[Rfam]
RNA: SAM riboswitch aptamer (S box leader)
Organism: Metabacillus sediminilitoris
RNA sequence: CUCUUAUCAAGAGAGGUGGAGGGAUGUGCCCUAUGAAGCCCGGCAACCAUCAACAAAUGUUGAAAUGGUGCCAAUUCACGCAAAGCUGCAAGCUUUGGAAGAUGGGAG
Numbered sequence: 001c002u003c004u005u006a007u008c009a010a011g012a013g014a015g016g017u018g019g020a021g022g023g024a025u026g027u028g029c030c031c032u033a034u035g036a037a038g039c040c041c042g043g044c045a046a047c048c049a050u051c052a053a054c055a056a057a058u059g060u061u062g063a064a065a066u067g068g069u070g071c072c073a074a075u076u077c078a079c080g081c082a083a084a085g086c087u088g089c090a091a092g093c094u095u096u097g098g099a100a101g102a103u104g105g106g107a108g
Base pairs, nucleotide, nucleotide: 001108002107003106004105005104006103007102008101013041015040016039017038021031022030023029025080026079027078028077042072043071044070045069047068048067050063051062052061076100081097082096083095084094085093086092